A member of the RNA family "Burkholderia sRNA 16 (Bc_KC_sr1)" from Burkholderia sp. Leaf177, 85 nucleotides long. A search with the family's covariance model found it, with a score of 75 bits. The family's RNA type in Rfam is small RNA. Rfam describes the family as follows. Identified by RNA-seq, RACE and Northern blot. Strongly expressed in biofilm. Also know as Bc_KC_sr1. Upregulated in response to iron ion depletion.
[Rfam]
RNA sequence: GUAGGUGGCUGGCAGUGCCGCCACGUGCCAUUCUCCUCUUGUCGUUGUUGCUCCGGGGCCCGCUAUAUUGCCCCGGUUUUUUUUC
Dot-bracket structure: (((.(((..((((...)))).))).)))........................(((((((..........))))))).........
Numbered sequence: 001g002u003a004g005g006u007g008g009c010u011g012g013c014a015g016u017g018c019c020g021c022c023a024c025g026u027g028c029c030a031u032u033c034u035c036c037u038c039u040u041g042u043c044g045u046u047g048u049u050g051c052u053c054c055g056g057g058g059c060c061c062g063c064u065a066u067a068u069u070g071c072c073c074c075g076g077u078u079u080u081u082u083u084u085c
Stems, first nucleotide, its partner, number of pairs: 001028003005024003010020004053076007